[Rfam]
RNA sequence: AACCAACAAUAACCUUUUUAUUUUUCAGUAACUCCCUAACCAAGAGUUACUACUCCUUUUUCCGCUAGGCCUAACCAACCUAGUGGUUUUUUUG
Numbered sequence: 001a002a003c004c005a006a007c008a009a010u011a012a013c014c015u016u017u018u019u020a021u022u023u024u025u026c027a028g029u030a031a032c033u034c035c036c037u038a039a040c041c042a043a044g045a046g047u048u049a050c051u052a053c054u055c056c057u058u059u060u061u062c063c064g065c066u067a068g069g070c071c072u073a074a075c076c077a078a079c080c081u082a083g084u085g086g087u088u089u090u091u092u093u094g
Base pairs, nucleotide, nucleotide: 028050029049030048031047032046033045034044062086063085064084065083066082067081068080069079072078
Rfam assigns this 94-nucleotide RNA sequence from Enterococcus italicus to the family "Enterococcus sRNA 84". The family has 5 seed sequences and 30 matches in Rfam 15.1. The literature on the family includes a 2015 paper in RNA by Innocenti et al., "Whole-genome mapping of 5' RNA ends in bacteria by tagged sequencing: a comprehensive view in Enterococcus faecalis".